[Rfam]
RNA sequence: GGUGCCAGAGGGAGGGAUCACAAUCCAGCCUUAGGAAAAGAAACAUUCCACGGGAUUCUUGGAGAUUGGCGGCCGUCCUAAUGACUUA
Number, nucleotide and partner (000 for none) at each position: 001g000002g087003u000004g085005c000006c083007a082008g000009a000010g079011g078012g077013a076014g000015g074016g073017a000018u071019c000020a000021c068022a067023a066024u065025c064026c000027a000028g000029c062030c061031u000032u000033a000034g000035g000036a000037a000038a060039a059040g058041a057042a000043a000044c054045a000046u052047u000048c000049c000050a000051c000052g046053g000054g044055a000056u000057u041058c040059u039060u038061g030062g029063a000064g025065a024066u023067u022068g021069g000070c000071g018072g000073c016074c015075g000076u013077c012078c011079u010080a000081a000082u007083g006084a000085c004086u000087u002088a000